[Rfam]
RNA: Small nucleolar RNA SNORD94
RNA sequence: CUGGCGAUGAUGAGUGGCGCAGGGGUACAGACCUCAGCUGGAUAAUGGGAGCUGAGUGCGGGCGGUCUUCCUUCAGCCUGCAUGUGGCAGGCUUGAAGAGGCACCUGCAUGAGAAACAUCGCCGACGCCUGAGCCAC
Numbered sequence: 001c002u003g004g005c006g007a008u009g010a011u012g013a014g015u016g017g018c019g020c021a022g023g024g025g026u027a028c029a030g031a032c033c034u035c036a037g038c039u040g041g042a043u044a045a046u047g048g049g050a051g052c053u054g055a056g057u058g059c060g061g062g063c064g065g066u067c068u069u070c071c072u073u074c075a076g077c078c079u080g081c082a083u084g085u086g087g088c089a090g091g092c093u094u095g096a097a098g099a100g101g102c103a104c105c106u107g108c109a110u111g112a113g114a115a116a117c118a119u120c121g122c123c124g125a126c127g128c129c130u131g132a133g134c135c136a137c
Base pairs, nucleotide, nucleotide: 002136003135004134005133